Rfam assigns this 161-nucleotide sequence from Tardiphaga sp. vice352 to the family "Bradyrhizobiaceae sRNA BjrC80". Rfam classes the family as a small RNA. The pairing is the family consensus, mapped onto this sequence. Lineage of the source: Bacteria > Pseudomonadati > Pseudomonadota > Alphaproteobacteria > Tardiphaga.

[Rfam]
RNA sequence: UAACGGAGAGUGCCGGACGCAUGUCGCCCCCGCCGACGGCACUUUCCCAGGGAGCGGGCCACAAGCUCGUUCCCGUCCAACCCCUUCCGCGCGAAGCGCCCCCUUCGUGCGGAAGGCAUCAGCGGGCGGUGAAGUUUCCCCCAGCUUCACCGCCUGUUUCC
Numbered sequence: 001u002a003a004c005g006g007a008g009a010g011u012g013c014c015g016g017a018c019g020c021a022u023g024u025c026g027c028c029c030c031c032g033c034c035g036a037c038g039g040c041a042c043u044u045u046c047c048c049a050g051g052g053a054g055c056g057g058g059c060c061a062c063a064a065g066c067u068c069g070u071u072c073c074c075g076u077c078c079a080a081c082c083c084c085u086u087c088c089g090c091g092c093g094a095a096g097c098g099c100c101c102c103c104u105u106c107g108u109g110c111g112g113a114a115g116g117c118a119u120c121a122g123c124g125g126g127c128g129g130u131g132a133a134g135u136u137u138c139c140c141c142c143a144g145c146u147u148c149a150c151c152g153c154c155u156g157u158u159u160c161c
Stems, first nucleotide, its partner, number of pairs: 009043007019033002050074009060065001075123002080119001083116002087112004092107004124155012